[Rfam]
RNA sequence: UGAUGUAAGUGUCAAAAGUAUAAAUUGCGUUUGUGCUCGCACAAAUAAGCAAUUUAUACUUAUUGACACACCGAACACCUCAAACUCCCAUAAAAUGGUGUGAACACGCCAUUUUAUGGGAGUUUGAGGUGUUCGAGGAUUGCGGGAAUUGCAUAGCAAUGGAGCAAUCCGGUUACAUCA
Numbered sequence: 001u002g003a004u005g006u007a008a009g010u011g012u013c014a015a016a017a018g019u020a021u022a023a024a025u026u027g028c029g030u031u032u033g034u035g036c037u038c039g040c041a042c043a044a045a046u047a048a049g050c051a052a053u054u055u056a057u058a059c060u061u062a063u064u065g066a067c068a069c070a071c072c073g074a075a076c077a078c079c080u081c082a083a084a085c086u087c088c089c090a091u092a093a094a095a096u097g098g099u100g101u102g103a104a105c106a107c108g109c110c111a112u113u114u115u116a117u118g119g120g121a122g123u124u125u126g127a128g129g130u131g132u133u134c135g136a137g138g139a140u141u142g143c144g145g146g147a148a149u150u151g152c153a154u155a156g157c158a159a160u161g162g163a164g165c166a167a168u169c170c171g172g173u174u175a176c177a178u179c180a
Base pairs, nucleotide, nucleotide: 001180002179003178004177005176006175007174011067012066013065014064017060018059019058020057021056022055023054024053025052026051027050028049029046031044032043033042034041035040073134074133075132076131077130078129079128080127083124084123085122086121091116092115093114094113095112096111097110098109099108100107101106137170138169139168140167141166142165143164148160149159150158151157